[Rfam]
RNA sequence: GUCUUAUCAAGAGUGAUGGAGGGACUGGCCCGAUGAAAUCCGACAACCAGCACAUAUAUGUGUAUGGUGUUAAUUCCAGCAGAUGUUUAAUCUGAGAGAUAAGAA
Numbered sequence: 001g002u003c004u005u006a007u008c009a010a011g012a013g014u015g016a017u018g019g020a021g022g023g024a025c026u027g028g029c030c031c032g033a034u035g036a037a038a039u040c041c042g043a044c045a046a047c048c049a050g051c052a053c054a055u056a057u058a059u060g061u062g063u064a065u066g067g068u069g070u071u072a073a074u075u076c077c078a079g080c081a082g083a084u085g086u087u088u089a090a091u092c093u094g095a096g097a098g099a100u101a102a103g104a105a
Base pairs, nucleotide, nucleotide: 002104003103004102005101006100007099008098013041015040016039017038021031022030023029025079026078027077028076042071043070044069045068047067048066050063051062052061053060075097080094081093082092083091084090